[Rfam]
RNA: Bacillaceae-1 RNA
RNA sequence: UUGGGAGGAUGUUAGCCUAAGUUCGUCGCGUCCAUGCGACAACGGCUAACUGACCUGCAUCACGCAGG
Numbered sequence: 001u002u003g004g005g006a007g008g009a010u011g012u013u014a015g016c017c018u019a020a021g022u023u024c025g026u027c028g029c030g031u032c033c034a035u036g037c038g039a040c041a042a043c044g045g046c047u048a049a050c051u052g053a054c055c056u057g058c059a060u061c062a063c064g065c066a067g068g
Base pairs, nucleotide, nucleotide: 011050012049013048014047015046016045017044025040026039027038028037029036054068055067056066057065058064